[Rfam]
RNA sequence: GGAAAAUAAGGGCAAAUCAGUCGAAAGGCUGGGGCGCAAAACUACAGGGGCUACCAUCCGGGACGGAUAUGCCAGCCAGUUGCACAC
Numbered sequence: 001g002g003a004a005a006a007u008a009a010g011g012g013c014a015a016a017u018c019a020g021u022c023g024a025a026a027g028g029c030u031g032g033g034g035c036g037c038a039a040a041a042c043u044a045c046a047g048g049g050g051c052u053a054c055c056a057u058c059c060g061g062g063a064c065g066g067a068u069a070u071g072c073c074a075g076c077c078a079g080u081u082g083c084a085c086a087c
Stems, first nucleotide, its partner, number of pairs: 012037002017032006040081004047077002049073003057066002
Shown here is an 87-nucleotide sequence from Bacillus salacetis, a member of the family "c-di-GMP-I riboswitch aptamer".
The base pairs follow the family's consensus structure, which is taken from published work.
Gene Ontology term of the family: cyclic-di-GMP binding.